Annotation
A member of the RNA family "mir-181 microRNA precursor family" from Acipenser ruthenus, 85 nucleotides long. Rfam links the family to the GO terms RISC complex and miRNA-mediated post-transcriptional gene silencing. For this family Rfam cites "microRNAs: tiny regulators with great potential" (Ambros, Cell, 2001). The match comes from Rfam's covariance-model search (81 bits).

RNA sequence: UUGCUUCAGUGAACAUUCAACGCUGUCGGUGAGUUUAAGAUAAAUGGGAAAAAACCAUCGACCGUUGAUUGUACCCUGUAGCCAA
Numbered sequence: 001u002u003g004c005u006u007c008a009g010u011g012a013a014c015a016u017u018c019a020a021c022g023c024u025g026u027c028g029g030u031g032a033g034u035u036u037a038a039g040a041u042a043a044a045u046g047g048g049a050a051a052a053a054a055c056c057a058u059c060g061a062c063c064g065u066u067g068a069u070u071g072u073a074c075c076c077u078g079u080a081g082c083c084a085a
Stems, first nucleotide, its partner, number of pairs: 001085003004081002007078002014071002017068006025062007033055004